RNA: Glycine riboswitch aptamer
RNA sequence: GCCGCACUUGCAGGAGAGCGGGCCGCGAAAGCGGCUCCACCGAAGGCGCAAACUCCCAUAAACGCUCAGGUCGGCUCGCAACGAGCCUGUACUGCAAUCAACUG
Dot-bracket structure: .......((((((......((((..........)))).(((((..(((...(......)...))))).)))....................)))))).......